[Rfam]
RNA sequence: GCUGCCAUGGCUCCGUGGUAAAGUUCUCGGUUCACAACCGAGAGGACGGUGGUUCGAUCCCACCUGGCAGCA
Numbered sequence: 001g002c003u004g005c006c007a008u009g010g011c012u013c014c015g016u017g018g019u020a021a022a023g024u025u026c027u028c029g030g031u032u033c034a035c036a037a038c039c040g041a042g043a044g045g046a047c048g049g050u051g052g053u054u055c056g057a058u059c060c061c062a063c064c065u066g067g068c069a070g071c072a
Stems, first nucleotide, its partner, number of pairs: 001071007010024003026042005048064005
Shown here is a 72-nucleotide RNA from Phytophthora rubi, a member of the family "tRNA".
Its family is annotated with triplet codon-amino acid adaptor activity in the Gene Ontology.